[Rfam]
RNA sequence: ACGCUUUUCUUUCGCGACAAAAUGCCUAUAUGGGGAAUUGCCGGUUUCGACCGGCUAUGGCGAUAAAUUGUGGCGUGCAAUAGGCACAGCGGACCCGGGGGCAGUACCCGGCGGCUCCACCAUAACCGGUGGUGUAUCUGGACACCGUUUCUGACGGGGCCGAACCAGGAUCGACGUGUGUUGAAAAACGCUGUUUUCGCUCGGAAUGGGACCACCGAAACGGCCCAUAUUCACAAGUGCCAACGAUAACGAAGCACUCGCUAUUGCGGCGUAAUCUGACGGCCUAACGGCCAAAGAUUACUCUAAAAUGCGCGGUUGGACCGCACCGGGCAACAGAAGCGGAUUCC
Number, nucleotide and partner (000 for none) at each position: 001a000002c000003g000004c000005u000006u000007u000008u000009c000010u000011u000012u000013c000014g000015c000016g000017a000018c000019a000020a000021a000022a000023u000024g000025c000026c000027u000028a000029u000030a000031u000032g000033g000034g000035g000036a000037a000038u000039u000040g055041c054042c053043g052044g051045u000046u000047u000048c000049g000050a000051c044052c043053g042054g041055c040056u000057a000058u000059g201060g200061c199062g198063a197064u000065a000066a000067a000068u000069u000070g194071u193072g192073g191074c190075g189076u188077g000078c000079a000080a000081u000082a000083g000084g000085c180086a179087c178088a000089g177090c176091g175092g000093a000094c000095c111096c110097g109098g108099g107100g000101g000102c000103a000104g000105u000106a000107c099108c098109c097110g096111g095112c162113g161114g160115c159116u158117c157118c156119a000120c000121c000122a000123u000124a000125a000126c000127c000128g000129g000130u000131g000132g000133u000134g000135u000136a000137u000138c000139u000140g000141g000142a000143c000144a000145c000146c000147g000148u000149u000150u000151c000152u000153g000154a000155c000156g118157g117158g116159g115160c114161c113162g112163a000164a000165c000166c000167a000168g000169g000170a000171u000172c000173g000174a000175c091176g090177u089178g087179u086180g085181u000182u000183g000184a000185a000186a000187a000188a076189c075190g074191c073192u072193g071194u070195u000196u000197u063198c062199g061200c060201u059202c217203g216204g215205a000206a000207u227208g226209g225210g000211a000212c223213c222214a000215c204216c203217g202218a000219a000220a000221c000222g213223g212224c000225c209226c208227a207228u000229a000230u000231u000232c000233a000234c000235a000236a000237g000238u000239g000240c000241c000242a000243a000244c000245g000246a000247u000248a000249a000250c000251g000252a000253a000254g000255c000256a000257c000258u000259c000260g000261c000262u000263a000264u000265u000266g000267c000268g000269g000270c000271g000272u000273a000274a000275u000276c000277u000278g000279a000280c000281g000282g000283c000284c000285u000286a000287a000288c000289g000290g000291c000292c000293a000294a000295a000296g000297a000298u000299u000300a000301c000302u000303c000304u000305a000306a000307a000308a000309u000310g000311c000312g000313c328314g327315g326316u325317u000318g000319g345320a344321c000322c342323g000324c000325a316326c315327c314328g313329g000330g000331c000332a000333a000334c000335a000336g000337a000338a000339g000340c000341g000342g322343a000344u320345u319346c000347c000
RNA: Alphaproteobacteria transfer-messenger RNA
Organism: Stakelama pacifica